A member of the RNA family "Small nucleolar RNA SNORD103/SNORD85" from Melopsittacus undulatus, 77 nucleotides long. For this family Rfam cites "Identification of 13 novel human modification guide RNAs" (Vitali et al., Nucleic Acids Res, 2003). Rfam 15.1 lists 1,349 matches to the family in 595 species. The base pairs follow the family's consensus structure. The family's RNA type in Rfam is C/D-box small nucleolar RNA. It scores 45 bits against the family's covariance model.
RNA sequence: UCUGGUGAUGGCAACACGCUUGUCCUCACUGAGGACAGUGUUUGUGGAUGAGAACAGCUCGGUGCAGCUGAGCCAGA
Numbered sequence: 001u002c003u004g005g006u007g008a009u010g011g012c013a014a015c016a017c018g019c020u021u022g023u024c025c026u027c028a029c030u031g032a033g034g035a036c037a038g039u040g041u042u043u044g045u046g047g048a049u050g051a052g053a054a055c056a057g058c059u060c061g062g063u064g065c066a067g068c069u070g071a072g073c074c075a076g077a
Stems, first nucleotide, its partner, number of pairs: 001077006
Dot-bracket structure: ((((((.................................................................))))))